Shown here is a 103-nucleotide RNA from Photobacterium proteolyticum, a member of the family "Alpha operon ribosome binding site". For this family Rfam cites "Translational repression of the Escherichia coli alpha operon mRNA: importance of an mRNA conformational switch and a ternary entrapment complex" (Schlax et al., J Biol Chem, 2001). About the family: The bacterial alpha operon ribosome binding site is surrounded by this complex pseudoknotted structure. By type it is a cis-regulatory element.
RNA sequence: AUUGUUCCACCGCUGCGUAUCCUAAACGGGCUCUGCAGCGGUUAUUCUUGAAAAGUACUAGGAGUGAAUAGUGGCCCGUAUUGCAGGCAUUAACAUUCCUGAU
Numbered sequence: 001a002u003u004g005u006u007c008c009a010c011c012g013c014u015g016c017g018u019a020u021c022c023u024a025a026a027c028g029g030g031c032u033c034u035g036c037a038g039c040g041g042u043u044a045u046u047c048u049u050g051a052a053a054a055g056u057a058c059u060a061g062g063a064g065u066g067a068a069u070a071g072u073g074g075c076c077c078g079u080a081u082u083g084c085a086g087g088c089a090u091u092a093a094c095a096u097u098c099c100u101g102a103u
Stems, first nucleotide, its partner, number of pairs: 004047001009042005021087003027078004036101002